This 132-nucleotide RNA from Lynx pardinus belongs to the Rfam family "U4 spliceosomal RNA". On this family, see Bai et al., Science 2018: "Structures of the fully assembled Saccharomyces cerevisiae spliceosome before activation". The family's consensus secondary structure is taken from published work. The family is grouped with related families in Rfam's "U4 clan". Rfam classes the family as a spliceosomal small nuclear RNA. Taxonomically the source falls in Lynx (Eukaryota, Dipnotetrapodomorpha, Amniota, Carnivora).
[Rfam]
RNA sequence: AGCUUUGUGCAGUGGCAGUAUCGUAGCCAAUGAGGUUUAUGCAAGGCACAGUUACUGCUAAAAGGGGUAAAAAAAUAUAUAUAGCUAAACAUUUUAGCUUUAAUUUUUCUGAAAGGAAAUAUGCCUAUUUUC
Dot-bracket structure: ...................((.((.(((.....(.......)..))))).))...........................((.(((((((...))))))).)).............((((.........))))
Numbered sequence: 001a002g003c004u005u006u007g008u009g010c011a012g013u014g015g016c017a018g019u020a021u022c023g024u025a026g027c028c029a030a031u032g033a034g035g036u037u038u039a040u041g042c043a044a045g046g047c048a049c050a051g052u053u054a055c056u057g058c059u060a061a062a063a064g065g066g067g068u069a070a071a072a073a074a075a076u077a078u079a080u081a082u083a084g085c086u087a088a089a090c091a092u093u094u095u096a097g098c099u100u101u102a103a104u105u106u107u108u109c110u111g112a113a114a115g116g117a118a119a120u121a122u123g124c125c126u127a128u129u130u131u132c
Stems, first nucleotide, its partner, number of pairs: 020052002023049002026047003034042001080102002083099007116132004